Small nucleolar RNA SNORD97: a 190-nucleotide RNA from Oryzias javanicus. The match comes from Rfam's covariance-model search (59 bits). Gene Ontology terms of the family: nucleolus and RNA processing. A reference for the family is Vitali et al. (2003), "Identification of 13 novel human modification guide RNAs", Nucleic Acids Res.
[Rfam]
RNA sequence: AUGCCCUGUGAUUAUAAAAAGACGCGUUAUUCUGAGGAGCAUACCUGCUCUCUGUCUCUGCUACUCUCCCAUCUUCUUCUUUGUUUAUUCUUUCUUCACUCUUCCUCUUUUAUUUUCUUUUCUUUUACAUCCUUAUCCUUCUGCCUCUUGCAGCAGGUCCGCUGACUGCAAUUUUGAGAUAUGAGGGCAU
Numbered sequence: 001a002u003g004c005c006c007u008g009u010g011a012u013u014a015u016a017a018a019a020a021g022a023c024g025c026g027u028u029a030u031u032c033u034g035a036g037g038a039g040c041a042u043a044c045c046u047g048c049u050c051u052c053u054g055u056c057u058c059u060g061c062u063a064c065u066c067u068c069c070c071a072u073c074u075u076c077u078u079c080u081u082u083g084u085u086u087a088u089u090c091u092u093u094c095u096u097c098a099c100u101c102u103u104c105c106u107c108u109u110u111u112a113u114u115u116u117c118u119u120u121u122c123u124u125u126u127a128c129a130u131c132c133u134u135a136u137c138c139u140u141c142u143g144c145c146u147c148u149u150g151c152a153g154c155a156g157g158u159c160c161g162c163u164g165a166c167u168g169c170a171a172u173u174u175u176g177a178g179a180u181a182u183g184a185g186g187g188c189a190u
Stems, first nucleotide, its partner, number of pairs: 001190006035106004
Dot-bracket structure: ((((((............................((((................................................................))))..............................................................................))))))